[Rfam]
RNA sequence: GGCGGGGGGGUUGGGGGACCCUCAGCCUGGAAUGUAAGAGGGCACAGACCAGGCUGAGGGACCCCACCGAUGCACG
Numbered sequence: 001g002g003c004g005g006g007g008g009g010g011u012u013g014g015g016g017g018a019c020c021c022u023c024a025g026c027c028u029g030g031a032a033u034g035u036a037a038g039a040g041g042g043c044a045c046a047g048a049c050c051a052g053g054c055u056g057a058g059g060g061a062c063c064c065c066a067c068c069g070a071u072g073c074a075c076g
Stems, first nucleotide, its partner, number of pairs: 004073001006071001009068002014065004019060009029050002033046003

Shown here is a 76-nucleotide RNA sequence from Myotis davidii, a member of the family "mir-9193 microRNA precursor family". Rfam 15.1 lists 6,008 matches to the family in 8 species. Its family is annotated with RISC complex and miRNA-mediated post-transcriptional gene silencing in the Gene Ontology. Lineage of the source: Eukaryota > Teleostomi > Laurasiatheria > Vespertilionidae > Myotis. The family's consensus secondary structure was predicted with RNAalifold. A search with the family's covariance model found it, with a score of 56 bits.